RNA sequence: GUUGCUUCACGACUGGAUGGAUGGCCUGUUGUUAAUAGUUUGGCCAUCCUGUAGAGGGAAGCAUAGAUGAACGGUGACACCGACCAGCAAUAAACAACAUGACGCUCUAUCAAACUGCGUCUUGUUACGUGUCUUUUGGCACAUUU
Numbered sequence: 001g002u003u004g005c006u007u008c009a010c011g012a013c014u015g016g017a018u019g020g021a022u023g024g025c026c027u028g029u030u031g032u033u034a035a036u037a038g039u040u041u042g043g044c045c046a047u048c049c050u051g052u053a054g055a056g057g058g059a060a061g062c063a064u065a066g067a068u069g070a071a072c073g074g075u076g077a078c079a080c081c082g083a084c085c086a087g088c089a090a091u092a093a094a095c096a097a098c099a100u101g102a103c104g105c106u107c108u109a110u111c112a113a114a115c116u117g118c119g120u121c122u123u124g125u126u127a128c129g130u131g132u133c134u135u136u137u138g139g140c141a142c143a144u145u146u
Base pairs, nucleotide, nucleotide: 003063004062005061006060007059008058017052018051019050020049022046023045024044025043026042084139085138086137087136089134096126097125098124101121102120103119104118
The family of this 146-nucleotide RNA from Hordeum vulgare is "small nucleolar RNA snoR137". The match comes from Rfam's covariance-model search (48 bits). The organism belongs to Hordeum vulgare, within Eukaryota. Its family is annotated with RNA processing and nucleolus in the Gene Ontology. On this family, see Chen and Wu, Nucleic Acids Res 2009: "Mining small RNA sequencing data: a new approach to identify small nucleolar RNAs in Arabidopsis".